FMN riboswitch aptamer (RFN element): a 126-nucleotide RNA from Georgenia soli.
RNA sequence: CACGUGCUCCGGGGUCGGUGAGAGUCCGAACCGGCGGUGACAGUCCGCGAGCCGGCACCUCGGUGCCGGUUGACCUGGUGGAACUCCAGGACCGACGGUUAAAGUCCGGAUGGGAGGAAGCACGCG
Numbered sequence: 001c002a003c004g005u006g007c008u009c010c011g012g013g014g015u016c017g018g019u020g021a022g023a024g025u026c027c028g029a030a031c032c033g034g035c036g037g038u039g040a041c042a043g044u045c046c047g048c049g050a051g052c053c054g055g056c057a058c059c060u061c062g063g064u065g066c067c068g069g070u071u072g073a074c075c076u077g078g079u080g081g082a083a084c085u086c087c088a089g090g091a092c093c094g095a096c097g098g099u100u101a102a103a104g105u106c107c108g109g110a111u112g113g114g115a116g117g118a119a120g121c122a123c124g125c126g
Stems, first nucleotide, its partner, number of pairs: 003124006009117002016028003030105002032094002034048004043092002051070003074090005096108003
Background:
Rfam describes the family as follows. The RFN element is a highly conserved domain that is found frequently in the 5'-untranslated regions of prokaryotic mRNAs that encode for flavin mononucleotide (FMN) biosynthesis and transport proteins. This element is a metabolite-dependent riboswitch that directly binds FMN in the absence of proteins. In Bacillus subtilis, the riboswitch most likely controls gene expression by causing premature transcription termination within the 5' untranslated region of the ribDEAHT operon and precluding access to the ribosome-binding site of ypaA mRNA.The FMN riboswitch structure, reported in present an FMN-bound six-stem junction, adopts a butterfly-like scaffold, stapled together by opposingly directed but nearly identically folded peripheral domains.